[Rfam]
RNA sequence: AAGCACAACAACACAUAUAUUCGUAUAAUUCCAGGGAUUGGCCUGGAAGUCUCUACGAGGUCACCGUAAUGACCUGGCUACGAUUAAGAAGAGUCCUUUC
Numbered sequence: 001a002a003g004c005a006c007a008a009c010a011a012c013a014c015a016u017a018u019a020u021u022c023g024u025a026u027a028a029u030u031c032c033a034g035g036g037a038u039u040g041g042c043c044u045g046g047a048a049g050u051c052u053c054u055a056c057g058a059g060g061u062c063a064c065c066g067u068a069a070u071g072a073c074c075u076g077g078c079u080a081c082g083a084u085u086a087a088g089a090a091g092a093g094u095c096c097u098u099u100c
Base pairs, nucleotide, nucleotide: 018086019085021083022082023081024080025079029048030047031046032045033044034043035042058075059074060073061072062071063070
The record is a 100-nucleotide RNA from Paenibacillus albidus, which matches "Purine riboswitch aptamer" in Rfam. Rfam links the family to the GO term purine nucleobase biosynthetic process. For this family Rfam cites "Riboswitches Control Fundamental Biochemical Pathways in Bacillus subtilis and Other Bacteria" (Mandal et al., Cell, 2003). The match comes from Rfam's covariance-model search (71 bits). Rfam's curators write: Riboswitches are metabolite binding domains within certain messenger RNAs that serve as precision sensors for their corresponding targets. Allosteric rearrangement of mRNA structure is mediated by ligand binding, and this results in modulation of gene expression. A class of riboswitches that selectively recognises guanine and becomes saturated at concentrations as low as 5 nM. In Bacillus subtilis, this mRNA motif is located on at least five separate transcriptional units that together encode 17 genes that are mostly involved in purine transport and purine nucleotide biosynthesis. It has also been shown that some members of this family are specific for adenine instead. Hence this family are termed purine riboswitches.